c-di-GMP-I riboswitch aptamer: an 89-nucleotide RNA sequence from Oleiphilus sp. HI0079.

RNA sequence: CAAGGAGUACGCCAAACCAAUUGUGAGAUUGGGACGGAAAGCCAAGGGUCUGCCCUCAGGACGAGAAAAGCAGACAGCCGGUUACAACU
Numbered sequence: 001c002a003a004g005g006a007g008u009a010c011g012c013c014a015a016a017c018c019a020a021u022u023g024u025g026a027g028a029u030u031g032g033g034a035c036g037g038a039a040a041g042c043c044a045a046g047g048g049u050c051u052g053c054c055c056u057c058a059g060g061a062c063g064a065g066a067a068a069a070g071c072a073g074a075c076a077g078c079c080g081g082u083u084a085c086a087a088c089u
Stems, first nucleotide, its partner, number of pairs: 012037002017032006040083004046079002048075006